[Rfam]
RNA sequence: AUGCAUCACCUGUACGCUACGGUUCCUGCGCGCUGUCCGCGCCCACCCGACAACGACUCGCGACGUUUUGUUAGCU
Numbered sequence: 001a002u003g004c005a006u007c008a009c010c011u012g013u014a015c016g017c018u019a020c021g022g023u024u025c026c027u028g029c030g031c032g033c034u035g036u037c038c039g040c041g042c043c044c045a046c047c048c049g050a051c052a053a054c055g056a057c058u059c060g061c062g063a064c065g066u067u068u069u070g071u072u073a074g075c076u
Base pairs, nucleotide, nucleotide: 002016003015005013006012020035021034022033023032025030047074049072050071051070052069053068
This 76-nucleotide RNA sequence from Xanthomonas albilineans belongs to the Rfam family "Xanthomonas sRNA sX9". Pairs were carried over by alignment from the consensus structure, which was predicted with RNAalifold. Taxonomically the source falls in Xanthomonas albilineans (Bacteria, Gammaproteobacteria, Lysobacteraceae, Xanthomonas). The literature on the family includes a 2011 paper in Nucleic Acids Res by Schmidtke et al., "Genome-wide transcriptome analysis of the plant pathogen Xanthomonas identifies sRNAs with putative virulence functions".